[Rfam]
Shown here is a 123-nucleotide RNA from Clostridium vincentii, a member of the family "SAM riboswitch aptamer (S box leader)".

RNA sequence: AUCUUAUUAAGAGUGGUGGAGGGACUGGCCCGUUGAAACCCAGCAACCAAUAUAAUAGUUCAUUUACUAUUAUAGAGUAGGUGCUAAAUCCUGCAGUAAUAGUAUAUUACUGAAAGAUAAGAG
Numbered sequence: 001a002u003c004u005u006a007u008u009a010a011g012a013g014u015g016g017u018g019g020a021g022g023g024a025c026u027g028g029c030c031c032g033u034u035g036a037a038a039c040c041c042a043g044c045a046a047c048c049a050a051u052a053u054a055a056u057a058g059u060u061c062a063u064u065u066a067c068u069a070u071u072a073u074a075g076a077g078u079a080g081g082u083g084c085u086a087a088a089u090c091c092u093g094c095a096g097u098a099a100u101a102g103u104a105u106a107u108u109a110c111u112g113a114a115a116g117a118u119a120a121g122a123g
Base pairs, nucleotide, nucleotide: 002122003121004120005119006118007117008116013041015040016039017038021031022030023029025093027091028090042085043084044083045082047081048080049078051076089115094112095111096110097109098108099107
Description:
The SAM riboswitch is found upstream of a number of genes which code for proteins involved in methionine or cysteine biosynthesis in Gram-positive bacteria.